[Rfam]
RNA sequence: UCGCACAUCUUGUUGUCUGAUUGAAACCAUUUGAUCAUAUGACAAGAUGUGUAUCUA
Numbered sequence: 001u002c003g004c005a006c007a008u009c010u011u012g013u014u015g016u017c018u019g020a021u022u023g024a025a026a027c028c029a030u031u032u033g034a035u036c037a038u039a040u041g042a043c044a045a046g047a048u049g050u051g052u053a054u055c056u057a
Stems, first nucleotide, its partner, number of pairs: 003052014018037002022033004
Record summary:
This 57-nucleotide RNA sequence from Vibrio navarrensis belongs to the Rfam family "RNA-OUT". NCBI's taxonomy places the organism under Bacteria, Pseudomonadati, Pseudomonadota, Gammaproteobacteria, Vibrio. From the family's description: Transposition of insertion sequence IS10 is regulated by an anti-sense RNA which inhibits transposase expression when IS10 is present in multiple copies per cell. The anti-sense RNA (RNA-OUT) consists of a stem domain topped by a flexibly paired loop; the 5' end of the target molecule, RNA-IN, is complementary to the top of the loop, and complementarity extends for 35 base-pairs down one side of RNA-OUT. This bacterial RNA is also found in the genomic sequence of eukaryotic organisms. The family has 16 seed sequences and 102 matches in Rfam 15.1. A search with the family's covariance model found it, with a score of 64 bits.